Rfam assigns this 79-nucleotide RNA from Equus caballus to the family "Small nucleolar RNA SNORD111".
The organism belongs to Equus, within Eukaryota.
A reference for the family is Huttenhofer et al. (2001), "RNomics: an experimental approach that identifies 201 candidates for novel, small, non-messenger RNAs in mouse", EMBO J.
The family's RNA type in Rfam is C/D-box small nucleolar RNA.
A search with the family's covariance model found it, with a score of 65 bits.
Its family is annotated with RNA processing and nucleolus in the Gene Ontology.
[Rfam]
RNA sequence: UGGCCUGAAGUGAUGAUUCAGGUUCAUGUCUCUUCUCUGAUAAACCUCUUGAAGAAAAUCUGUGUAUCUGAUCAGGCCU
Numbered sequence: 001u002g003g004c005c006u007g008a009a010g011u012g013a014u015g016a017u018u019c020a021g022g023u024u025c026a027u028g029u030c031u032c033u034u035c036u037c038u039g040a041u042a043a044a045c046c047u048c049u050u051g052a053a054g055a056a057a058a059u060c061u062g063u064g065u066a067u068c069u070g071a072u073c074a075g076g077c078c079u
Base pairs, nucleotide, nucleotide: 002078003077004076005075